[Rfam]
aspS RNA: a 78-nucleotide sequence from Thermophilibacter immobilis.
Nucleotides: 078
Stems, first nucleotide, its partner, number of pairs: 001028006008020003030071004035067002042065007
Number, partner (000 for none) and nucleotide at each position: 001028g002027u003026g004025a005024c006023g007000u008020g009019c010018g011000c012000c013000g014000u015000c016000u017000a018010c019009g020008c021000c022000c023006c024005g025004u026003c027002a028001c029000c030071g031070u032069c033068u034000g035067c036066u037000g038000g039000g040000a041000a042065g043064c044063c045062g046061c047060c048059c049000g050000u051000a052000c053000g054000g055000c056000a057000c058000g059048g060047g061046g062045c063044g064043g065042c066036a067035g068033a069032g070031a071030c072000g073000a074000a075000a076000g077000g078000u
The family's RNA type in Rfam is cis-regulatory element.